[Rfam]
Nucleotides: 444
Stems, first nucleotide, its partner, number of pairs: 001384006011024005026130001027128006036121001040115006051104001052102002057098003061094004068087002070084005134159010164175003179352004184348003190342003199339001201338006218312002222309005229302003239296005245269003250264003270274001275290001279288002353374008385439001387436005395429003404423008
Number, partner (000 for none) and nucleotide at each position: 001384c002383u003382c004381c005380u006379c007000g008000a009000a010000a011024a012023c013022u014021a015020u016000u017000u018000a019000g020015g021014u022013a023012g024011u025000g026130c027128c028127u029126c030125g031124g032123a033000c034000g035000a036121a037000u038000a039000c040115c041114a042113c043112u044111g045110g046000g047000g048000g049000u050000a051104g052102a053101g054000c055000a056000c057098u058097g059096u060000u061094u062093g063092g064091g065000c066000u067000a068087g069086g070084g071083g072082g073081u074080c075000a076000u077000c078000c079000c080074g081073a082072c083071u084070u085000a086069c087068c088000a089000a090000c091064c092063c093062c094061a095000u096059g097058c098057a099000a100000a101053c102052u103000c104051c105000g106000a107000a108000u109000a110045c111044c112043a113042g114041u115040g116000a117000g118000u119000a120000c121036u122000a123032u124031c125030c126029g127028g128027g129000a130026g131000a132000c133000a134159c135158a136157c137156g138155g139154c140153g141152g142151g143150u144000g145000c146000u147000a148000a149000c150143g151142u152141c153140c154139g155138u156137c157136g158135u159134g160000a161000a162000a163000a164175g165174g166173g167000a168000a169000a170000c171000a172000a173166c174165c175164c176000a177000g178000a179352c180351c181350g182349u183000c184348a185347g186346c187000u188000a189000a190342g191341g192340u193000c194000c195000c196000a197000a198000a199339g200000u201338u202337u203336u204335g205334g206333u207000u208000a209000a210000g211000u212000g213000g214000g215000a216000a217000a218312c219311g220000a221000u222309g223308u224307g225306g226305g227000a228000a229302g230301g231300c232000u233000c234000a235000g236000a237000c238000a239296g240295c241294u242293a243292g244000g245269a246268g247267g248000u249000u250264g251263g252262c253000u254000u255000a256000g257000a258000a259000g260000c261000a262252g263251c264250c265000a266000c267247c268246c269245u270274u271000u272000a273000a274270a275290g276000a277000a278000a279288g280287c281000g282000u283000a284000a285000u286000a287280g288279c289000u290275c291000a292243c293242u294241a295240g296239u297000c298000g299000a300231g301230u302229c303000g304000g305226c306225c307224u308223g309222c310000g311219c312218g313000g314000a315000a316000g317000a318000u319000a320000u321000a322000a323000c324000g325000g326000g327000g328000c329000u330000c331000a332000a333206a334205c335204c336203a337202a338201a339199c340192a341191c342190c343000g344000a345000a346186g347185c348184u349182a350181c351180g352179g353374a354373c355372u356371u357370g358369u359368g360367u361000a362000u363000u364000u365000a366000u367360a368359c369358a370357u371356g372355a373354g374353u375000g376000g377000u378000a379006g380005a381004g382003g383002a384001g385439c386000g387436u388435u389434g390433u391432g392000u393000a394000a395429g396428c397427c398000g399000u400000u401000g402000a403000a404423g405422g406421u407420g408419a409418g410417u411416u412000g413000a414000g415000a416411a417410g418409c419408u420407u421406g422405c423404u424000g425000g426000a427397g428396g429395u430000a431000u432391c433390a434389c435388a436387a437000g438000u439385g440000c441000g442000a443000a444000u
The family of this 444-nucleotide part of an RNA from Reinekea forsetii is "Bacterial large subunit ribosomal RNA". The base pairs follow the family's consensus structure, which is taken from published work. The organism belongs to Reinekea, within Bacteria.